Rfam assigns this 96-nucleotide RNA from Nicotiana attenuata to the family "MIR6152 microRNA precursor family".
[Rfam]
RNA sequence: UGGACAGAUUGUUGUAUUCGACUGUAUUCACGGCACGAAACAAGAGAUUACACUGUUUUUAAACGGAAAGUGAAUCAAUUAACAUACCUAAUAUAA
Numbered sequence: 001u002g003g004a005c006a007g008a009u010u011g012u013u014g015u016a017u018u019c020g021a022c023u024g025u026a027u028u029c030a031c032g033g034c035a036c037g038a039a040a041c042a043a044g045a046g047a048u049u050a051c052a053c054u055g056u057u058u059u060u061a062a063a064c065g066g067a068a069a070g071u072g073a074a075u076c077a078a079u080u081a082a083c084a085u086a087c088c089u090a091a092u093a094u095a096a
Stems, first nucleotide, its partner, number of pairs: 010093004014085002017082002020080002023077002026075006034065001037059006

NCBI's taxonomy places the organism under Eukaryota, Embryophyta, eudicotyledons, Solanaceae, Nicotiana.